The family of this 122-nucleotide RNA sequence from Pseudaminobacter soli is "TPP riboswitch aptamer (THI element)". Rfam's curators write: Vitamin B(1) in its active form thiamin pyrophosphate (TPP) is an essential coenzyme that is synthesised by coupling of pyrimidine and thiazole moieties in bacteria. Gene Ontology term of the family: thiamine pyrophosphate binding. The match comes from Rfam's covariance-model search (62 bits). Lineage of the source: Bacteria > Pseudomonadota > Alphaproteobacteria > Phyllobacteriaceae > Pseudaminobacter.

RNA sequence: AAAGCUCUAACGGGGUGCCGGACGCGGUUUCGCGAACGGCUGAGAGGCAAAGGGGGACACCCGGCCAACCCGCUGAACCUGAUCCGGUUUGUACCGGCGGAGGGAUUAGACGCAUCGGAUGC
Numbered sequence: 001a002a003a004g005c006u007c008u009a010a011c012g013g014g015g016u017g018c019c020g021g022a023c024g025c026g027g028u029u030u031c032g033c034g035a036a037c038g039g040c041u042g043a044g045a046g047g048c049a050a051a052g053g054g055g056g057a058c059a060c061c062c063g064g065c066c067a068a069c070c071c072g073c074u075g076a077a078c079c080u081g082a083u084c085c086g087g088u089u090u091g092u093a094c095c096g097g098c099g100g101a102g103g104g105a106u107u108a109g110a111c112g113c114a115u116c117g118g119a120u121g122c
Stems, first nucleotide, its partner, number of pairs: 006110005011072004017040004047065002078103003084097004